[Rfam]
RNA sequence: CGCUUAUUCAGAGUGAUGGAGAUACAUAGGAUCUGAGAAGUCACGGCAACCCCUUAACAGGAAGGUGCCAGCCUGAGCGAAAUUAGAAGUUACAUAUAUUAUGUG
Number, nucleotide and partner (000 for none) at each position: 001c105002g104003c103004u000005u101006a100007u000008u098009c000010a000011g000012a000013g044014u043015g042016a041017u040018g000019g000020a000021g033022a032023u031024a000025c000026a000027u077028a000029g000030g074031a023032u022033c021034u000035g000036a000037g000038a000039a000040g017041u016042c015043a014044c013045g069046g068047c067048a066049a000050c065051c064052c061053c060054u059055u000056a000057a000058c000059a054060g053061g052062a000063a000064g051065g050066u048067g047068c046069c045070a000071g000072c000073c000074u030075g000076a000077g027078c000079g093080a000081a091082a090083u089084u000085a000086g000087a000088a000089g083090u082091u081092a000093c079094a000095u000096a000097u000098a008099u000100u006101a005102u000103g003104u002105g001
This 105-nucleotide RNA from Butyrivibrio sp. CAG:318 belongs to the Rfam family "SAM riboswitch aptamer (S box leader)".
It scores 51 bits against the family's covariance model.